[Rfam]
RNA sequence: AAGUAUCUCCGAGUUCACCGAAUCUGUCGGUGAAUAGGAGUAACGGCUGGCUGGCACAGCCAUCGACGUACCUGUUCGAUUCAGGGAGCGGAUGCUUUGCACCGCGAGAACAGGCUACGUCGUAAACCACAAUAUCCCAACCCAGCGGUGUGGUGCCGUGGGAAUCCUCGUGCUUCAGCGCGGGGA
Dot-bracket structure: ..((..((((..(((((((((.....))))))))).))))..))(((((.......)))))..((((((.(((((((.............(.(((...))).)....)))))))..))))))............((((.....................)))).(((((((((....)))))))))
Numbered sequence: 001a002a003g004u005a006u007c008u009c010c011g012a013g014u015u016c017a018c019c020g021a022a023u024c025u026g027u028c029g030g031u032g033a034a035u036a037g038g039a040g041u042a043a044c045g046g047c048u049g050g051c052u053g054g055c056a057c058a059g060c061c062a063u064c065g066a067c068g069u070a071c072c073u074g075u076u077c078g079a080u081u082c083a084g085g086g087a088g089c090g091g092a093u094g095c096u097u098u099g100c101a102c103c104g105c106g107a108g109a110a111c112a113g114g115c116u117a118c119g120u121c122g123u124a125a126a127c128c129a130c131a132a133u134a135u136c137c138c139a140a141c142c143c144a145g146c147g148g149u150g151u152g153g154u155g156c157c158g159u160g161g162g163a164a165u166c167c168u169c170g171u172g173c174u175u176c177a178g179c180g181c182g183g184g185g186a
Stems, first nucleotide, its partner, number of pairs: 003044002007040004013035009045061005064122006071114007091103001093101003135163004165186009